Source information: This 117-nucleotide sequence belongs to the Rfam family "Betaproteobacteria-1 RNA". The sequence is in the family's curated seed alignment. The family's consensus secondary structure is taken from published work. It is annotated as a small RNA.
RNA sequence: GCUGUAUGUUGUCGGGUAACGGCAGGGCAUACAGCUAGUAUUCCGUACUGUGGGUAGCAAUUUAAAUACGGAUAUGGGCAGCGAAGUUAGCACCCUAAUUGUGAAAGGCUGACGUGU
Numbered sequence: 001g002c003u004g005u006a007u008g009u010u011g012u013c014g015g016g017u018a019a020c021g022g023c024a025g026g027g028c029a030u031a032c033a034g035c036u037a038g039u040a041u042u043c044c045g046u047a048c049u050g051u052g053g054g055u056a057g058c059a060a061u062u063u064a065a066a067u068a069c070g071g072a073u074a075u076g077g078g079c080a081g082c083g084a085a086g087u088u089a090g091c092a093c094c095c096u097a098a099u100u101g102u103g104a105a106a107g108g109c110u111g112a113c114g115u116g117u
Stems, first nucleotide, its partner, number of pairs: 001035010022051004042072006058101004076095003086113006